The family of this 107-nucleotide RNA from Salicibibacter halophilus is "SAM riboswitch aptamer (S box leader)".

[Rfam]
RNA sequence: CACUUAUCAAGAGAGACUGAGGGGUUAGGCCCGAUGACGUCCGGCAACCUCCCAUGAUGGGGAAGGUGCCAAUUCCUGCAGAAUGAAUUCAUUCUGAAAGAUAAGUC
Numbered sequence: 001c002a003c004u005u006a007u008c009a010a011g012a013g014a015g016a017c018u019g020a021g022g023g024g025u026u027a028g029g030c031c032c033g034a035u036g037a038c039g040u041c042c043g044g045c046a047a048c049c050u051c052c053c054a055u056g057a058u059g060g061g062g063a064a065g066g067u068g069c070c071a072a073u074u075c076c077u078g079c080a081g082a083a084u085g086a087a088u089u090c091a092u093u094c095u096g097a098a099a100g101a102u103a104a105g106u107c
Stems, first nucleotide, its partner, number of pairs: 002106007013042001015041003021032003026078004043070004048066002050062004074099001079096006

It scores 90 bits against the family's covariance model. Taxonomically the source falls in Salicibibacter (Bacteria, Bacillati, Bacillota, Bacilli).